[Rfam]
RNA sequence: GCGGAGGUGAGCUCAGCUGGUGCUGGGGGUUGGCUUCAAACCAAUCGGACCCUUGCGGGUCAGACGUUCGAUCCGUCCCUCUCCGC
Dot-bracket structure: (((((((.(..((((((....))))))((((((.......)))))).(((((....))))).((((.......))))).)))))))
Numbered sequence: 001g002c003g004g005a006g007g008u009g010a011g012c013u014c015a016g017c018u019g020g021u022g023c024u025g026g027g028g029g030u031u032g033g034c035u036u037c038a039a040a041c042c043a044a045u046c047g048g049a050c051c052c053u054u055g056c057g058g059g060u061c062a063g064a065c066g067u068u069c070g071a072u073c074c075g076u077c078c079c080u081c082u083c084c085g086c
Stems, first nucleotide, its partner, number of pairs: 001086007009078001012027006028046006048061005063077004